[Rfam]
RNA sequence: CAAUGAAAUCCGCCUGCCGGCAGGUGAAAUCGCUGAGCGGUGAAAUACGGCAAAGCCGUAUGAAAUGCACU
Numbered sequence: 001c002a003a004u005g006a007a008a009u010c011c012g013c014c015u016g017c018c019g020g021c022a023g024g025u026g027a028a029a030u031c032g033c034u035g036a037g038c039g040g041u042g043a044a045a046u047a048c049g050g051c052a053a054a055g056c057c058g059u060a061u062g063a064a065a066u067g068c069a070c071u
Base pairs, nucleotide, nucleotide: 008025009024010023012021013020014019029041030040031039032038045061046060047059048058049057050056051055
Shown here is a 71-nucleotide sequence from Anaerosporomusa subterranea, a member of the family "Gut-1 RNA". It scores 57 bits against the family's covariance model. The base pairs follow the family's consensus structure, which is taken from published work. The source organism's lineage runs through Bacteria, Bacillati, Bacillota, Acetonemataceae and Anaerosporomusa.